[Rfam]
RNA sequence: GUCUGGGCGCAGUGGUUUAUCGAUCCCUUCCUUGCCUUGUGCUGAUCCGGGAGUGGUGGUUUCAAGUGUUUCUUGUUGCAGACAACGCGGGAAUCGGUCGAUAAACCUCUGCAUCCAGCU
Numbered sequence: 001g002u003c004u005g006g007g008c009g010c011a012g013u014g015g016u017u018u019a020u021c022g023a024u025c026c027c028u029u030c031c032u033u034g035c036c037u038u039g040u041g042c043u044g045a046u047c048c049g050g051g052a053g054u055g056g057u058g059g060u061u062u063c064a065a066g067u068g069u070u071u072c073u074u075g076u077u078g079c080a081g082a083c084a085a086c087g088c089g090g091g092a093a094u095c096g097g098u099c100g101a102u103a104a105a106c107c108u109c110u111g112c113a114u115c116c117a118g119c120u
Stems, first nucleotide, its partner, number of pairs: 003118005009112004014107012028093005034088002037085003